[Rfam]
RNA sequence: GUCUGUGUGGAUGGUGUUCAGCACCAGGAACACAUGUUUACCUGUGUGUGUGUGUAUGGUGUUCAGCACCAGGUGUGUUAACCU
Numbered sequence: 001g002u003c004u005g006u007g008u009g010g011a012u013g014g015u016g017u018u019c020a021g022c023a024c025c026a027g028g029a030a031c032a033c034a035u036g037u038u039u040a041c042c043u044g045u046g047u048g049u050g051u052g053u054g055u056a057u058g059g060u061g062u063u064c065a066g067c068a069c070c071a072g073g074u075g076u077g078u079u080a081a082c083c084u
Stems, first nucleotide, its partner, number of pairs: 012071007020063007028051001030049007

Shown here is an 84-nucleotide RNA sequence from Branchiostoma floridae, a member of the family "mir-2060 microRNA precursor family". Its family is annotated with RISC complex and miRNA-mediated post-transcriptional gene silencing in the Gene Ontology. It scores 62 bits against the family's covariance model.